RNA sequence: AGCCCCCUGUAUCCGUGCUGAGAUUUCGUCAGAGAUCAACCCAUUGGCGUUGGUUGAUGGUACUUCCGAAAUAAGUGAAGCG
Numbered sequence: 001a002g003c004c005c006c007c008u009g010u011a012u013c014c015g016u017g018c019u020g021a022g023a024u025u026u027c028g029u030c031a032g033a034g035a036u037c038a039a040c041c042c043a044u045u046g047g048c049g050u051u052g053g054u055u056g057a058u059g060g061u062a063c064u065u066c067c068g069a070a071a072u073a074a075g076u077g078a079a080g081c082g
Base pairs, nucleotide, nucleotide: 002081003080006077008075010073011072012071016068017067020065021064022063024062026060027059028058029057030056031055032054
RNA: mir-3492 microRNA precursor family
Organism: Trichobilharzia regenti